Shown here is a 191-nucleotide RNA from Macrococcoides bohemicum, a member of the family "6S / SsrS RNA". NCBI's taxonomy places the organism under Bacteria, Bacillati, Caryophanales, Staphylococcaceae, Macrococcoides. Rfam classes the family as a non-coding RNA gene. The family's consensus secondary structure is taken from published work.
RNA sequence: AGGUGUCUGAAGAGUUCGAUGUUUGUUUAUUCUAUUUUGACCUAACACUUUUUUGAUCGGGAGUCUAAUAGGUUUUCUUUUAGCGCACACGCCUCAAAUGGAGGACUUGCAAAAUUAGAAACGGGACACCCACCUGUUUAUAACAGGCCAAAAUGAUCAACACUUAAAACGACGGCUCACUUGGAUACUAU
Numbered sequence: 001a002g003g004u005g006u007c008u009g010a011a012g013a014g015u016u017c018g019a020u021g022u023u024u025g026u027u028u029a030u031u032c033u034a035u036u037u038u039g040a041c042c043u044a045a046c047a048c049u050u051u052u053u054u055g056a057u058c059g060g061g062a063g064u065c066u067a068a069u070a071g072g073u074u075u076u077c078u079u080u081u082a083g084c085g086c087a088c089a090c091g092c093c094u095c096a097a098a099u100g101g102a103g104g105a106c107u108u109g110c111a112a113a114a115u116u117a118g119a120a121a122c123g124g125g126a127c128a129c130c131c132a133c134c135u136g137u138u139u140a141u142a143a144c145a146g147g148c149c150a151a152a153a154u155g156a157u158c159a160a161c162a163c164u165u166a167a168a169a170c171g172a173c174g175g176c177u178c179a180c181u182u183g184g185a186u187a188c189u190a191u
Base pairs, nucleotide, nucleotide: 002189003188004187005186006185007184008183009182010181012178013177014176015175017174018173033155034154035153037151038150039149041147042146059131060130061129063127064126065125066124075120076119077118078117081114087108092104093103094102095101